[Rfam]
RNA sequence: CAACCUUUGCACACUCUGGCCCUUACCGUCCCUUCCCGCCUUCGGGCCUGGAUUGGACCUUCAUGUGGUAUAGGCUUAUUUUUCGCAAAGAAGAUAAAUCUUCGACCCGCUACUCACCGCGGUAACCUCUGUGGCAAGCUUGCUUGUCCUUGUGGUUACAGUGGUCCAUGUUUUCGGUCAACAU
Numbered sequence: 001c002a003a004c005c006u007u008u009g010c011a012c013a014c015u016c017u018g019g020c021c022c023u024u025a026c027c028g029u030c031c032c033u034u035c036c037c038g039c040c041u042u043c044g045g046g047c048c049u050g051g052a053u054u055g056g057a058c059c060u061u062c063a064u065g066u067g068g069u070a071u072a073g074g075c076u077u078a079u080u081u082u083u084c085g086c087a088a089a090g091a092a093g094a095u096a097a098a099u100c101u102u103c104g105a106c107c108c109g110c111u112a113c114u115c116a117c118c119g120c121g122g123u124a125a126c127c128u129c130u131g132u133g134g135c136a137a138g139c140u141u142g143c144u145u146g147u148c149c150u151u152g153u154g155g156u157u158a159c160a161g162u163g164g165u166c167c168a169u170g171u172u173u174u175c176g177g178u179c180a181a182c183a184u
Base pairs, nucleotide, nucleotide: 007088008087009086018076019075020074021073024070025069026068027067028066029065104179105178106177107176117164118163119162120161122159123158124157125156126155127154
Rfam assigns this 184-nucleotide sequence from Aspergillus glaucus to the family "Small nucleolar RNA snR80". Lineage of the source: Eukaryota > Ascomycota > leotiomyceta > Aspergillaceae > Aspergillus glaucus. Gene Ontology terms of the family: RNA processing and nucleolus.